[Rfam]
Nucleotides: 076
Stems, first nucleotide, its partner, number of pairs: 001076004
Number, partner (000 for none) and nucleotide at each position: 001076u002075g003074c004073a005000g006000a007000u008000g009000a010000u011000g012000u013000g014000a015000a016000a017000g018000a019000a020000u021000a022000u023000u024000u025000g026000c027000c028000a029000u030000c031000u032000g033000a034000g035000a036000g037000a038000g039000a040000g041000u042000u043000g044000u045000g046000c047000u048000g049000a050000c051000a052000c053000a054000c055000a056000a057000c058000c059000a060000c061000c062000a063000a064000g065000a066000u067000c068000a069000c070000u071000g072000a073004u074003g075002c076001a
Small nucleolar RNA SNORD24: a 76-nucleotide RNA from Thinocorus orbignyianus. It is annotated as a C/D-box small nucleolar RNA. The base pairs follow the family's consensus structure, which was predicted with PFOLD.